[Rfam]
RNA sequence: UGUCCUAUGGAAUUAGACAUAGGAGCAGGAGAUUGUUGUCAAGUGUUCGAUGACAAGUUCUUGAAGAAAUUCUUGC
Numbered sequence: 001u002g003u004c005c006u007a008u009g010g011a012a013u014u015a016g017a018c019a020u021a022g023g024a025g026c027a028g029g030a031g032a033u034u035g036u037u038g039u040c041a042a043g044u045g046u047u048c049g050a051u052g053a054c055a056a057g058u059u060c061u062u063g064a065a066g067a068a069a070u071u072c073u074u075g076c
Base pairs, nucleotide, nucleotide: 003024004023005022006021007020008019009018055071056070058068059067060066
The family of this 76-nucleotide sequence from Propionispira arboris is "RT-6 RNA".
The match comes from Rfam's covariance-model search (56 bits).
The source organism's lineage runs through Bacteria, Negativicutes, Selenomonadales, Selenomonadaceae and Propionispira.
Rfam classes the family as a small RNA.
Pairs were carried over by alignment from the consensus structure, which is taken from published work.